[Rfam]
Nucleotides: 321
Stems, first nucleotide, its partner, number of pairs: 001311003004301008017060001027052001029050009065087008089263002099139001107132011144173003148169003152163003285293003302308002
Number, partner (000 for none) and nucleotide at each position: 001311g002310c003309c004301a005300g006299g007298c008297c009296g010295a011294c012000u013000g014000a015000c016000c017060g018000c019000a020000g021000c022000g023000g024000a025000a026000c027052g028000a029050c030049c031048g032047g033046g034045u035044g036043g037042c038000c039000c040000u041000g042037g043036c044035c045034g046033c047032c048031c049030g050029g051000c052027c053000g054000c055000g056000g057000c058000a059000a060017c061000a062000c063000g064000a065087c066086g067085c068084c069083g070082g071081g072080g073000u074000u075000g076000u077000c078000c079000u080072c081071c082070c083069c084068g085067g086066c087065g088000g089263g090262c091000g092000g093000c094000a095000c096000c097000a098000u099139g100000u101000c102000c103000u104000u105000u106000g107132u108131c109130g110129c111128c112127g113126g114125u115124c116123c117122g118000g119000u120000g121000c122117c123116g124115g125114a126113c127112c128111g129110g130109c131108g132107g133000c134000a135000u136000u137000u138000u139099c140000g141000g142000c143000a144173g145172c146171g147000c148169g149168g150167c151000g152163c153162u154161g155000c156000c157000g158000g159000c160000g161154c162153a163152g164000g165000c166000c167150g168149c169148u170000u171146c172145g173144c174000g175000g176000c177000g178000g179000c180000a181000g182000g183000g184000c185000g186000c187000g188000u189000g190000g191000u192000a193000a194000c195000g196000c197000g198000u199000g200000u201000u202000a203000u204000u205000c206000u207000u208000g209000u210000u211000u212000g213000a214000a215000u216000g217000u218000c219000c220000g221000u222000g223000c224000c225000u226000g227000c228000a229000c230000g231000g232000c233000c234000u235000c236000c237000g238000a239000u240000c241000c242000c243000g244000a245000a246000c247000c248000c249000a250000u251000g252000a253000u254000c255000c256000a257000g258000c259000a260000g261000c262090g263089c264000a265000c266000c267000c268000u269000c270000a271000a272000g273000a274000a275000c276000a277000c278000g279000a280000u281000c282000c283000g284000c285293g286292c287291c288000a289000c290000c291287g292286g293285c294011g295010u296009c297008g298007g299006c300005c301004u302308g303307c304000a305000c306000a307303g308302c309003g310002g311001c312000g313000a314000c315000a316000a317000g318000g319000u320000c321000u